About this RNA
Rfam assigns this 76-nucleotide RNA from Ameiurus melas to the family "mir-7563 microRNA precursor family". The organism belongs to Ameiurus, within Eukaryota. Its family is annotated with miRNA-mediated post-transcriptional gene silencing and RISC complex in the Gene Ontology.

RNA sequence: ACCAUGUACUUACCUACUAUAUAGUAGCUGAAAUACAUGUAUCUUGGCUACUAUAUAGUAAGUAAGUAUGCGGUUU
Numbered sequence: 001a002c003c004a005u006g007u008a009c010u011u012a013c014c015u016a017c018u019a020u021a022u023a024g025u026a027g028c029u030g031a032a033a034u035a036c037a038u039g040u041a042u043c044u045u046g047g048c049u050a051c052u053a054u055a056u057a058g059u060a061a062g063u064a065a066g067u068a069u070g071c072g073g074u075u076u
Base pairs, nucleotide, nucleotide: 001074002073003072005070006069007068008067009066010065011064012063013062015060017058018057019056020055021054022053023052024051025050026049027048029046030045031044033042034041035040